[Rfam]
RNA sequence: UUGGCAGACCAGACGAACGCUGUACCACGCCACAGCAGGCAAUGGUAGGGAGGAAAGUCCGGGCUACAUAGGGCAGAGUGCCAGCUAACGGCUGGGAGGCGCAAGCCUACGACCAGUGCAGCAGAGAAUAGACCGCCUCGGCAAGCAAUGCCGCGGUAAGGGUGAAACGGUGGGGUAAGAGCCCACCGCGUGCUUGGUAACAACGCACGGCAAGGUAAACUCCACUCGUAGCAAGACCAAAUAGGUGUCCGUUUCGUGUGGCCCGCAUAGGACACGGGUAGGUUGCUUGAGCGUAGUGGUGACGCUGCGCCUAGAUGAAUGUUCGUCCUCGACAGAACCCGGCUUAUCGGUUUGUCAAAUCU
Numbered sequence: 001u002u003g004g005c006a007g008a009c010c011a012g013a014c015g016a017a018c019g020c021u022g023u024a025c026c027a028c029g030c031c032a033c034a035g036c037a038g039g040c041a042a043u044g045g046u047a048g049g050g051a052g053g054a055a056a057g058u059c060c061g062g063g064c065u066a067c068a069u070a071g072g073g074c075a076g077a078g079u080g081c082c083a084g085c086u087a088a089c090g091g092c093u094g095g096g097a098g099g100c101g102c103a104a105g106c107c108u109a110c111g112a113c114c115a116g117u118g119c120a121g122c123a124g125a126g127a128a129u130a131g132a133c134c135g136c137c138u139c140g141g142c143a144a145g146c147a148a149u150g151c152c153g154c155g156g157u158a159a160g161g162g163u164g165a166a167a168c169g170g171u172g173g174g175g176u177a178a179g180a181g182c183c184c185a186c187c188g189c190g191u192g193c194u195u196g197g198u199a200a201c202a203a204c205g206c207a208c209g210g211c212a213a214g215g216u217a218a219a220c221u222c223c224a225c226u227c228g229u230a231g232c233a234a235g236a237c238c239a240a241a242u243a244g245g246u247g248u249c250c251g252u253u254u255c256g257u258g259u260g261g262c263c264c265g266c267a268u269a270g271g272a273c274a275c276g277g278g279u280a281g282g283u284u285g286c287u288u289g290a291g292c293g294u295a296g297u298g299g300u301g302a303c304g305c306u307g308c309g310c311c312u313a314g315a316u317g318a319a320u321g322u323u324c325g326u327c328c329u330c331g332a333c334a335g336a337a338c339c340c341g342g343c344u345u346a347u348c349g350g351u352u353u354g355u356c357a358a359a360u361c362u
Stems, first nucleotide, its partner, number of pairs: 001358010011347001012327007020050002023047005055345003059342005064231004071264004076227005081095005096110001097108004111222002116220002118216002133161002135157003139153005169187006188211001189209005194203003235284004245275006256268004291310008
RNA: Bacterial RNase P class A
Organism: Faucicola atlantae